[Rfam]
RNA sequence: GUCUCCACCAGGAGGGGCCUGAAGGAAUCCGGAGCGCAACGCUAUGAGCCGACAGAGGGAACGGCAUACAAGGUCAUCCUCCGGGCAAGUCAGCACAACAUGACGAAGCCAUCGAUUCAGGAGAAGUCGGAAAUGCCGCGGCUGUGCAGCCACAGUUCAAGAA
Numbered sequence: 001g002u003c004u005c006c007a008c009c010a011g012g013a014g015g016g017g018c019c020u021g022a023a024g025g026a027a028u029c030c031g032g033a034g035c036g037c038a039a040c041g042c043u044a045u046g047a048g049c050c051g052a053c054a055g056a057g058g059g060a061a062c063g064g065c066a067u068a069c070a071a072g073g074u075c076a077u078c079c080u081c082c083g084g085g086c087a088a089g090u091c092a093g094c095a096c097a098a099c100a101u102g103a104c105g106a107a108g109c110c111a112u113c114g115a116u117u118c119a120g121g122a123g124a125a126g127u128c129g130g131a132a133a134u135g136c137c138g139c140g141g142c143u144g145u146g147c148a149g150c151c152a153c154a155g156u157u158c159a160a161g162a163a
Base pairs, nucleotide, nucleotide: 002015003014004013005012006011028163030161036156037155041150042149043148045146046145047143048142049141050140051139062138063137064136065135066134067133073128075126077125079123080122081121082120084110085109086108089104090103091102092101
Overview
A member of the RNA family "Group II catalytic intron D1-D4-3" from Desulfobulbus sp. Tol-SR, 163 nucleotides long. The source organism's lineage runs through Bacteria, Thermodesulfobacteriota, Desulfobulbia, Desulfobulbales and Desulfobulbus. A search with the family's covariance model found it, with a score of 73 bits. The literature on the family includes a 2001 paper in Trends Genet by Bonen and Vogel, "The ins and outs of group II introns".